Rfam assigns this 97-nucleotide RNA from Terminalia guyanensis to the family "Plastid-psbA-1 3UTR RNA". The source organism's lineage runs through Eukaryota, Streptophyta, Pentapetalae, malvids and Terminalia.

RNA sequence: AAGAAUUUUUAUUAAUAUAAUAUUAAUAAAAGAACACUAAGUAAAGGAGCAAUAACCAAUUUCUUGUUCUAUCAAGAGUGUUGAUUAUUGCUCCUUU
Numbered sequence: 001a002a003g004a005a006u007u008u009u010u011a012u013u014a015a016u017a018u019a020a021u022a023u024u025a026a027u028a029a030a031a032g033a034a035c036a037c038u039a040a041g042u043a044a045a046g047g048a049g050c051a052a053u054a055a056c057c058a059a060u061u062u063c064u065u066g067u068u069c070u071a072u073c074a075a076g077a078g079u080g081u082u083g084a085u086u087a088u089u090g091c092u093c094c095u096u097u
Stems, first nucleotide, its partner, number of pairs: 043097013057083003061078005
The literature on the family includes a 2023 paper in Plant Commun by Richter et al., "Retrograde signaling in plants: A critical review focusing on the GUN pathway and beyond". About the family: Plastid psbA-1 is a non-coding RNA (ncRNA) present in plastids. It was identified in inverted repeat sequences in the 3 prime untranslate region (3UTR) of photosystem II quinone-binding protein (psbA).